This 168-nucleotide RNA sequence from Eubacterium sp. AF36-5BH belongs to the Rfam family "Clostridiales-1 RNA". The family's consensus secondary structure is taken from published work. It is annotated as a small RNA. A search with the family's covariance model found it, with a score of 125 bits. The source organism's lineage runs through Bacteria, Clostridia, Eubacteriales, Eubacteriaceae and Eubacterium.
RNA sequence: UUAUUACAGUGUUGCAAUAGGUAAAUGCACCUGUGCUUGCACAAAGGUGCAUUUACCUAUUGACAACACGCCCCACAAAUGAGCAUAAAAGCACGACGAAGUCGGGCGAUAUGCGAAUGUGUGGGUUGGAUUGCGGGAGUGCGAAGUACGUAGCAAUCCAAAUAAUAA
Number, nucleotide and partner (000 for none) at each position: 001u168002u167003a166004u165005u164006a163007c000008a000009g000010u068011g067012u066013u065014g000015c000016a061017a060018u059019a058020g057021g056022u055023a054024a053025a052026u051027g050028c049029a048030c047031c046032u043033g042034u041035g040036c000037u000038u000039g000040c035041a034042c033043a032044a000045a000046g031047g030048u029049g028050c027051a026052u025053u024054u023055a022056c021057c020058u019059a018060u017061u016062g000063a000064c000065a013066a012067c011068a010069c000070g000071c000072c000073c124074c123075a122076c121077a120078a000079a118080u117081g000082a000083g114084c113085a112086u111087a000088a000089a000090a000091g107092c106093a000094c104095g103096a102097c101098g000099a000100a000101g097102u096103c095104g094105g000106g092107c091108g000109a000110u000111a086112u085113g084114c083115g000116a000117a080118u079119g000120u077121g076122u075123g074124g073125g000126u000127u000128g159129g158130a157131u156132u155133g154134c153135g000136g000137g000138a000139g149140u148141g147142c146143g000144a000145a000146g142147u141148a140149c139150g000151u000152a000153g134154c133155a132156a131157u130158c129159c128160a000161a000162a000163u006164a005165a004166u003167a002168a001